[Rfam]
RNA sequence: AUUUAUCUUCGGGGCUGGGUGAAAUUCCCGACCGGCGGUGAUAAGGCAUAGCCUUUCAGUCCGCGAGCCGGUAUUUCCGGCAGGAUUUGGUGAAAUUCCAAAACCGACAGUAUAGUCUGGAUGAGAGAAGAUAAAG
Numbered sequence: 001a002u003u004u005a006u007c008u009u010c011g012g013g014g015c016u017g018g019g020u021g022a023a024a025u026u027c028c029c030g031a032c033c034g035g036c037g038g039u040g041a042u043a044a045g046g047c048a049u050a051g052c053c054u055u056u057c058a059g060u061c062c063g064c065g066a067g068c069c070g071g072u073a074u075u076u077c078c079g080g081c082a083g084g085a086u087u088u089g090g091u092g093a094a095a096u097u098c099c100a101a102a103a104c105c106g107a108c109a110g111u112a113u114a115g116u117c118u119g120g121a122u123g124a125g126a127g128a129a130g131a132u133a134a135a136g
Stems, first nucleotide, its partner, number of pairs: 003134008017029003031116002033106002035064004059104002067081003086102005108119003
RNA: FMN riboswitch aptamer (RFN element)